Rfam assigns this 102-nucleotide RNA from Weizmannia acidilactici to the family "azaaromatic riboswitch aptamer (yjdF RNA)". Pairs were carried over by alignment from the consensus structure, which is taken from published work. Taxonomically the source falls in Heyndrickxia (Bacteria, Bacillota, Caryophanales, Bacillaceae).
RNA sequence: GCUGAGGAACGUAAAAACACAGUUUGGUUGGUAGUCCAAACGCAUUAAUGAAAUGCCAGUAACCUUCCCCCCCUCGGGAUGUCCAUCGUUCCUUCUUUAUUU
Numbered sequence: 001g002c003u004g005a006g007g008a009a010c011g012u013a014a015a016a017a018c019a020c021a022g023u024u025u026g027g028u029u030g031g032u033a034g035u036c037c038a039a040a041c042g043c044a045u046u047a048a049u050g051a052a053a054u055g056c057c058a059g060u061a062a063c064c065u066u067c068c069c070c071c072c073c074u075c076g077g078g079a080u081g082u083c084c085a086u087c088g089u090u091c092c093u094u095c096u097u098u099a100u101u102u
Base pairs, nucleotide, nucleotide: 004094005093006092007091008090009089010088011087022041023040024039025038026037027036042056043055044054045053046052066079067078068077069076